[Rfam]
RNA sequence: CAGCCUUAAACUAAUGAGUAAGGAAAAUAACGUGACGGCGCGAGACCCGUCACACGCCGUAGUGCUUAUCAAUUUUUGGCGGGGUACAGGCUAGUCGGGAGUUGACACUGCCUACUUUGCAGGACUCUCCCGUGCAUGCCUCCC
Numbered sequence: 001c002a003g004c005c006u007u008a009a010a011c012u013a014a015u016g017a018g019u020a021a022g023g024a025a026a027a028u029a030a031c032g033u034g035a036c037g038g039c040g041c042g043a044g045a046c047c048c049g050u051c052a053c054a055c056g057c058c059g060u061a062g063u064g065c066u067u068a069u070c071a072a073u074u075u076u077u078g079g080c081g082g083g084g085u086a087c088a089g090g091c092u093a094g095u096c097g098g099g100a101g102u103u104g105a106c107a108c109u110g111c112c113u114a115c116u117u118u119g120c121a122g123g124a125c126u127c128u129c130c131c132g133u134g135c136a137u138g139c140c141u142c143c144c
Stems, first nucleotide, its partner, number of pairs: 004023005032053007054067001056065002083144002088141004094135001096132002099129003108122004
RNA: U12 minor spliceosomal RNA
Organism: Chara braunii